[Rfam]
RNA: Group II catalytic intron D1-D4-2
RNA sequence: GAGAGAUGGCCUCCCGGUAUCGGCGUGCAGGCGCGCUGGUAUCAAACUGCUUCUAUGCUGCUGCGGUUAAGUAGCCGUGGUUGGGAGCGAUAGAAGAAAAGGCG
Numbered sequence: 001g002a003g004a005g006a007u008g009g010c011c012u013c014c015c016g017g018u019a020u021c022g023g024c025g026u027g028c029a030g031g032c033g034c035g036c037u038g039g040u041a042u043c044a045a046a047c048u049g050c051u052u053c054u055a056u057g058c059u060g061c062u063g064c065g066g067u068u069a070a071g072u073a074g075c076c077g078u079g080g081u082u083g084g085g086a087g088c089g090a091u092a093g094a095a096g097a098a099a100a101g102g103c104g
Stems, first nucleotide, its partner, number of pairs: 001015001003013003016043006023036003026031001050096002053093004058083001060081003064077004